Rfam assigns this 34-nucleotide RNA sequence from Syrrhaptes paradoxus to the family "Iron response element I". By type it is a cis-regulatory element. NCBI's taxonomy places the organism under Eukaryota, Sauria, Archelosauria, Saurischia, Syrrhaptes. The family has 62 seed sequences and 6,829 matches in Rfam 15.1.

RNA sequence: CUAUCUUUCUUCAACAGUGUUUGGAAAGGUAUAG
Numbered sequence: 001c002u003a004u005c006u007u008u009c010u011u012c013a014a015c016a017g018u019g020u021u022u023g024g025a026a027a028g029g030u031a032u033a034g
Stems, first nucleotide, its partner, number of pairs: 001034002003030004008026001010025005015019001